RNA sequence: CUGUGAAAAUAGGGGAGCUCACAAAUUAGUGGGCUGAGAGUAGGCUGAAGGCCUUGACCCUUAACCUGAUUUGGAUAAUGCCAACGUAGGAAUAUAUUAUGACGUACUUU
Numbered sequence: 001c002u003g004u005g006a007a008a009a010u011a012g013g014g015g016a017g018c019u020c021a022c023a024a025a026u027u028a029g030u031g032g033g034c035u036g037a038g039a040g041u042a043g044g045c046u047g048a049a050g051g052c053c054u055u056g057a058c059c060c061u062u063a064a065c066c067u068g069a070u071u072u073g074g075a076u077a078a079u080g081c082c083a084a085c086g087u088a089g090g091a092a093u094a095u096a097u098u099a100u101g102a103c104g105u106a107c108u109u110u
Stems, first nucleotide, its partner, number of pairs: 006098002009095002011061004016055001017034005042054004065090004071084004
The family of this 110-nucleotide RNA from Clostridium bornimense is "TPP riboswitch aptamer (THI element)". The source organism's lineage runs through Bacteria, Bacillati, Clostridia, Eubacteriales and Clostridium.